[Rfam]
RNA sequence: AAGAAUUAAUAAAUCAAGAGUUCAAAUGAUAGAGUAACGCCUUGAAAGGACUCCUUUAAUACUCCGAAUAGCAUUUUAAUAGAUAAAUAUAAAAUGUUAUAAGCUCGGUAAAGUCGGCUUGAGCCUACCCAAUAUUAAUUUUGAUAGAGGAAAAACGAACUGGAGGCAGUCGUGUAGGAUUGGUCGGAAGUCUAAUAU
Numbered sequence: 001a002a003g004a005a006u007u008a009a010u011a012a013a014u015c016a017a018g019a020g021u022u023c024a025a026a027u028g029a030u031a032g033a034g035u036a037a038c039g040c041c042u043u044g045a046a047a048g049g050a051c052u053c054c055u056u057u058a059a060u061a062c063u064c065c066g067a068a069u070a071g072c073a074u075u076u077u078a079a080u081a082g083a084u085a086a087a088u089a090u091a092a093a094a095u096g097u098u099a100u101a102a103g104c105u106c107g108g109u110a111a112a113g114u115c116g117g118c119u120u121g122a123g124c125c126u127a128c129c130c131a132a133u134a135u136u137a138a139u140u141u142u143g144a145u146a147g148a149g150g151a152a153a154a155a156c157g158a159a160c161u162g163g164a165g166g167c168a169g170u171c172g173u174g175u176a177g178g179a180u181u182g183g184u185c186g187g188a189a190g191u192c193u194a195a196u197a198u
Stems, first nucleotide, its partner, number of pairs: 018053006031043002034040001054190004064108004068100011115186005124178005129150002136146002155173003159170004
Shown here is a 198-nucleotide sequence from Candidatus Epulonipiscium fishelsonii, a member of the family "Group II catalytic intron D1-D4-5". Rfam links the family to the GO term Group II intron splicing. The family has 139 seed sequences and 720 matches in Rfam 15.1. It scores 139 bits against the family's covariance model. About the family: Group II introns are found in rRNA, tRNA and mRNA of organelles in fungi, plants and protists, and also in mRNA in bacteria. Lineage of the source: Bacteria > Bacillati > Clostridia > Lachnospirales > Candidatus Epulonipiscium.